RNA sequence: UGGCCAAGGAUGAGAAAUCUAACCUGAUGCCUCUGCUGUGAUGGGUUAAAGGAUUUACCUGAGGCCA
Numbered sequence: 001u002g003g004c005c006a007a008g009g010a011u012g013a014g015a016a017a018u019c020u021a022a023c024c025u026g027a028u029g030c031c032u033c034u035g036c037u038g039u040g041a042u043g044g045g046u047u048a049a050a051g052g053a054u055u056u057a058c059c060u061g062a063g064g065c066c067a
Stems, first nucleotide, its partner, number of pairs: 002066004
The record is a 67-nucleotide sequence from Nannospalax galili, which matches "Small nucleolar RNA SNORD93" in Rfam. The family's RNA type in Rfam is C/D-box small nucleolar RNA.